[Rfam]
RNA sequence: GGAAUAUAAGAAUCUGUCUCUUAACUUUUAACUAAAAAAACUAUGAACCGGUUCUUAAUCUUAUUUAAGAACCGGUUCAUAACUUUUUUAGUUAAAAAUUAAGAGACGGGUUCUUAUAUUCC
Numbered sequence: 001g002g003a004a005u006a007u008a009a010g011a012a013u014c015u016g017u018c019u020c021u022u023a024a025c026u027u028u029u030a031a032c033u034a035a036a037a038a039a040a041c042u043a044u045g046a047a048c049c050g051g052u053u054c055u056u057a058a059u060c061u062u063a064u065u066u067a068a069g070a071a072c073c074g075g076u077u078c079a080u081a082a083c084u085u086u087u088u089u090a091g092u093u094a095a096a097a098a099u100u101a102a103g104a105g106a107c108g109g110g111u112u113c114u115u116a117u118a119u120u121c122c
Base pairs, nucleotide, nucleotide: 001122002121003120004119005118006117007116008115009114010113011112012111013110014109015108016107017106018105019104020103021102022101023100024099026097027096028095029094030093031092032091033090034089035088036087037086038085039084042081043080044079045078046077047076